The family of this 358-nucleotide RNA sequence from Corallincola holothuriorum is "transfer-messenger RNA". It scores 244 bits against the family's covariance model. Taxonomically the source falls in Corallincola (Bacteria, Pseudomonadati, Pseudomonadota, Gammaproteobacteria). Its family is annotated with RNA catabolic process in the Gene Ontology. The family's consensus secondary structure is taken from published work. The family is grouped with related families in Rfam's "tRNA clan".

RNA sequence: GGGGCCGAUUCAGGAUUCGACGGGAAUUGUGAAACCCUAGGUGCAUGUCGUGGGGCGGUUGGCCACGUAAAAAGCCGCAAAAAAAUAGUCGCAAACGACGAAAACUACGCACUAGCAGCUUAAUAACCUGCAUAGAGCCCUUCCCCCUUAGUUCUCCUGUGGACUUUGGAUCCGGAAGGUCACCCCACACAGGAUCGCGUGGCGUCCCGGCCUGGGGAUUAAGCGCUAAAACUAAUCAGGCACGCCUGUAGAAGCCUGCCACUCGGCGUCUAACAGGUUACUAAAUGAGCUGGCUAAGCAUGUAGUACCGACGGCGUAAUAUUUUCGGACGGGGGUUCAAAUCCCCCCGGCUCCACCA
Number, nucleotide and partner (000 for none) at each position: 001g354002g353003g352004g351005c350006c349007g348008a000009u000010u000011c000012a000013g000014g000015a000016u000017u000018c000019g000020a000021c327022g326023g325024g324025a323026a322027u321028u000029g000030u318031g000032a000033a000034a000035c314036c313037c000038u311039a000040g309041g308042u307043g000044c302045a301046u300047g299048u298049c067050g066051u065052g064053g063054g000055g078056c077057g076058g075059u074060u073061g000062g000063c053064c052065a051066c050067g049068u000069a000070a000071a000072a000073a060074g059075c058076c057077g056078c055079a000080a000081a000082a000083a000084a000085a000086u000087a000088g000089u000090c000091g000092c000093a000094a000095a000096c000097g000098a000099c000100g000101a000102a000103a000104a000105c000106u000107a000108c000109g000110c000111a000112c135113u134114a133115g131116c130117a129118g128119c000120u000121u000122a000123a000124u000125a000126a000127c000128c118129u117130g116131c115132a000133u114134a113135g112136a000137g000138c000139c179140c178141u177142u176143c175144c174145c000146c169147c168148u000149u000150a165151g164152u163153u162154c000155u194156c193157c192158u191159g190160u189161g188162g153163a152164c151165u150166u000167u000168g147169g146170a000171u000172c000173c000174g144175g143176a142177a141178g140179g139180u000181c000182a000183c000184c000185c000186c000187a000188c161189a160190c159191a158192g157193g156194a155195u000196c000197g226198c225199g224200u223201g000202g000203c000204g000205u000206c000207c000208c000209g000210g241211c240212c239213u238214g237215g000216g000217g000218a000219u000220u000221a000222a000223g200224c199225g198226c197227u000228a000229a000230a000231a000232c000233u000234a000235a000236u000237c214238a213239g212240g211241c210242a000243c000244g278245c277246c276247u275248g274249u273250a000251g270252a269253a000254g267255c266256c265257u000258g294259c293260c292261a291262c000263u287264c000265g256266g255267c254268g000269u252270c251271u000272a000273a249274c248275a247276g246277g245278u244279u000280a000281c000282u000283a000284a000285a000286u000287g263288a000289g000290c000291u261292g260293g259294c258295u000296a000297a000298g048299c047300a046301u045302g044303u000304a000305g000306u000307a042308c041309c040310g000311a038312c000313g036314g035315c000316g000317u000318a030319a000320u000321a027322u026323u025324u024325u023326c022327g021328g000329a000330c000331g347332g346333g345334g344335g343336u000337u000338c000339a000340a000341a000342u000343c335344c334345c333346c332347c331348c007349g006350g005351c004352u003353c002354c001355a000356c000357c000358a000